RNA sequence: AUCUUAUGGCGCUAGGGUUCCGGUCCCCUUCGGGGAUGUCUGGUCCGAGAGCUGCCAGGCCCGCGCAGUGUGUCGGGCUCCACGGAGGGAUAAAAGCCCGGGAGGU
Numbered sequence: 001a002u003c004u005u006a007u008g009g010c011g012c013u014a015g016g017g018u019u020c021c022g023g024u025c026c027c028c029u030u031c032g033g034g035g036a037u038g039u040c041u042g043g044u045c046c047g048a049g050a051g052c053u054g055c056c057a058g059g060c061c062c063g064c065g066c067a068g069u070g071u072g073u074c075g076g077g078c079u080c081c082a083c084g085g086a087g088g089g090a091u092a093a094a095a096g097c098c099c100g101g102g103a104g105g106u
Base pairs, nucleotide, nucleotide: 007057008056009055010054011052012051015046016045020043021042022040023037024036025035026034027033028032058079059078060077061076062075063074081101083104087099088098089097
RNA: Guanidine-I riboswitch aptamer